[Rfam]
Shown here is a 76-nucleotide RNA sequence from Alligator mississippiensis, a member of the family "Mammalian CPEB3 ribozyme".
Taxonomically the source falls in Alligator (Eukaryota, Bilateria, Chordata, Alligatoridae).
Rfam 15.1 lists 5,706 matches to the family in 197 species.
For this family Rfam cites "A genomewide search for ribozymes reveals an HDV-like sequence in the human CPEB3 gene" (Salehi-Ashtiani et al., Science, 2006).
RNA sequence: AACAUAUAGUCUAGGCCAUAGCAGAAGUGCUCAUAGCAUGGCCCUGUCAGGCUCUAACAAAUCUGCACAUUCCACU
Numbered sequence: 001a002a003c004a005u006a007u008a009g010u011c012u013a014g015g016c017c018a019u020a021g022c023a024g025a026a027g028u029g030c031u032c033a034u035a036g037c038a039u040g041g042c043c044c045u046g047u048c049a050g051g052c053u054c055u056a057a058c059a060a061a062u063c064u065g066c067a068c069a070u071u072c073c074a075c076u
Stems, first nucleotide, its partner, number of pairs: 014043004020076002024072003027039003048065004053060001